This 127-nucleotide sequence from Gulosibacter chungangensis belongs to the Rfam family "FMN riboswitch aptamer (RFN element)". Pairs were carried over by alignment from the consensus structure, which is taken from published work. Gene Ontology term of the family: FMN binding. The family has 146 seed sequences and 6,230 matches in Rfam 15.1. Lineage of the source: Bacteria > Actinomycetota > Actinomycetes > Microbacteriaceae > Gulosibacter. It scores 104 bits against the family's covariance model.
RNA sequence: CACGUGCUCCGGGGUCGGUGAAAAUCCGAACCGGUGGUAAUAGUCCACGACCCGCCUGCUUCGGUAGGUGGUUGAUUCGGUGUAAUUCCGAAACCGACGGUCAUAGUCCGGAUGGGAGGCGCGCGUG
Number, nucleotide and partner (000 for none) at each position: 001c000002a000003c125004g124005u123006g122007c121008u000009c119010c118011g000012g000013g000014g000015u000016c028017g027018g026019u000020g000021a000022a000023a000024a000025u000026c018027c017028g016029a000030a107031c106032c096033g095034g048035u047036g046037g045038u000039a000040a000041u000042a000043g094044u093045c037046c036047a035048c034049g000050a000051c000052c071053c070054g000055c000056c000057u000058g000059c000060u000061u000062c000063g000064g000065u000066a000067g000068g000069u000070g053071g052072u000073u000074g000075a000076u092077u091078c090079g089080g088081u000082g000083u000084a000085a000086u000087u000088c080089c079090g078091a077092a076093a044094c043095c033096g032097a000098c110099g109100g108101u000102c000103a000104u000105a000106g031107u030108c100109c099110g098111g000112a000113u000114g000115g000116g000117a000118g010119g009120c000121g007122c006123g005124c004125g003126u000127g000